[Rfam]
RNA: sok antitoxin (CssrC)
Organism: Morganella morganii
RNA sequence: GGGUGCCUGAUUCUGUCCGGAUCAGGCUAUGUUUUCCCUGUUCCGGAUAGAAGAAAGCCCCGAUUACGUUUUUCAACAUAAACCGGGGCUGAAUCUCUACCAAACAAUAGGGAUUUUGCCUCCUUAAAUUAAAGGAGUCAAGAGAAAUGACCGGAAG
Numbered sequence: 001g002g003g004u005g006c007c008u009g010a011u012u013c014u015g016u017c018c019g020g021a022u023c024a025g026g027c028u029a030u031g032u033u034u035u036c037c038c039u040g041u042u043c044c045g046g047a048u049a050g051a052a053g054a055a056a057g058c059c060c061c062g063a064u065u066a067c068g069u070u071u072u073u074c075a076a077c078a079u080a081a082a083c084c085g086g087g088g089c090u091g092a093a094u095c096u097c098u099a100c101c102a103a104a105c106a107a108u109a110g111g112g113a114u115u116u117u118g119c120c121u122c123c124u125u126a127a128a129u130u131a132a133a134g135g136a137g138u139c140a141a142g143a144g145a146a147a148u149g150a151c152c153g154g155a156a157g
Stems, first nucleotide, its partner, number of pairs: 001061003005058002008055001011052011023040001026037001062084001064082002066079001068077003085122005091116009128148002